[Rfam]
RNA sequence: GGCGAUAAACGGAACGUAGAAUAAGCGUUGUGGACCCGGGGGCGGUACCCGGCGUCUCCACCAUCUCCUCCAGCCUUUCGGGGCGGGGAAACAUGGGGACGAAACAGGCUCGACACGCGUGGUAAAACCGUUCCUUUUGCCCGGCAUUGUACCACCGUCAUCGGGCUAAAUCACAAGUGCCAACGAUAACUCUGAGGUGCUCGCUGUCGCUGCAUAA
Numbered sequence: 001g002g003c004g005a006u007a008a009a010c011g012g013a014a015c016g017u018a019g020a021a022u023a024a025g026c027g028u029u030g031u032g033g034a035c036c037c038g039g040g041g042g043c044g045g046u047a048c049c050c051g052g053c054g055u056c057u058c059c060a061c062c063a064u065c066u067c068c069u070c071c072a073g074c075c076u077u078u079c080g081g082g083g084c085g086g087g088g089a090a091a092c093a094u095g096g097g098g099a100c101g102a103a104a105c106a107g108g109c110u111c112g113a114c115a116c117g118c119g120u121g122g123u124a125a126a127a128c129c130g131u132u133c134c135u136u137u138u139g140c141c142c143g144g145c146a147u148u149g150u151a152c153c154a155c156c157g158u159c160a161u162c163g164g165g166c167u168a169a170a171u172c173a174c175a176a177g178u179g180c181c182a183a184c185g186a187u188a189a190c191u192c193u194g195a196g197g198u199g200c201u202c203g204c205u206g207u208c209g210c211u212g213c214a215u216a217a
Base pairs, nucleotide, nucleotide: 001141002140003139004138005137014131015130016129026119027118028117030116031115032114036052037051038050039049040048053101054100055099056098057097058096059095142157143156144155